[Rfam]
RNA sequence: AUGAUCAUAAAUAACUAUCCUUGUAUAAUAUCAGUUACAUGGCCUGAUAGUCUCUACCUGACAGCCGUUAAAAUGUCAGACUACAAGGAAGUAUGAAAAGAUA
Numbered sequence: 001a002u003g004a005u006c007a008u009a010a011a012u013a014a015c016u017a018u019c020c021u022u023g024u025a026u027a028a029u030a031u032c033a034g035u036u037a038c039a040u041g042g043c044c045u046g047a048u049a050g051u052c053u054c055u056a057c058c059u060g061a062c063a064g065c066c067g068u069u070a071a072a073a074u075g076u077c078a079g080a081c082u083a084c085a086a087g088g089a090a091g092u093a094u095g096a097a098a099a100g101a102u103a
Stems, first nucleotide, its partner, number of pairs: 018089008029049006058079006
The record is a 103-nucleotide RNA from Heyndrickxia ginsengihumi, which matches "Purine riboswitch aptamer" in Rfam.
Gene Ontology term of the family: purine nucleobase biosynthetic process.
NCBI's taxonomy places the organism under Bacteria, Bacillota, Bacilli, Bacillaceae, Heyndrickxia.
For this family Rfam cites "Three-state mechanism couples ligand and temperature sensing in riboswitches" (Reining et al., Nature, 2013).
It scores 74 bits against the family's covariance model.
Pairs were carried over by alignment from the consensus structure, which is taken from published work.